[Rfam]
Nucleotides: 162
Base pairs, nucleotide, nucleotide: 006025007024008023009022010021011020033069034068035067036066037065038064039063040062043059044058045057078100079099080098081097082096083095084094085093086092118140
Number, partner (000 for none) and nucleotide at each position: 001000g002000c003000a004000a005000u006025c007024u008023c009022a010021g011020g012000a013000c014000g015000a016000c017000a018000u019000u020011u021010c022009u023008g024007a025006g026000g027000c028000a029000c030000a031000c032000u033069g034068u035067a036066c037065u038064a039063a040062g041000c042000g043059g044058u045057a046000u047000u048000c049000a050000g051000g052000c053000u054000g055000a056000u057045u058044g059043c060000c061000u062040c063039u064038u065037g066036g067035u068034a069033c070000g071000c072000c073000g074000u075000a076000g077000g078100u079099a080098c081097u082096a083095a084094c085093c086092u087000g088000a089000u090000u091000a092086g093085g094084g095083u096082u097081a098080g099079u100078a101000g102000a103000a104000g105000g106000g107000c108000a109000u110000u111000g112000a113000u114000a115000g116000c117000g118140c119000a120000g121000u122000c123000c124000u125000g126000u127000a128000a129000c130000a131000g132000c133000a134000a135000u136000g137000c138000a139000g140118g141000c142000g143000c144000a145000u146000a147000u148000u149000g150000a151000a152000g153000g154000a155000a156000c157000c158000c159000a160000a161000c162000u
A member of the RNA family "DABA-DC-AT RNA" from Photobacterium gaetbulicola, 162 nucleotides long. NCBI's taxonomy places the organism under Bacteria, Pseudomonadota, Vibrionaceae, Photobacterium, Photobacterium gaetbulicola.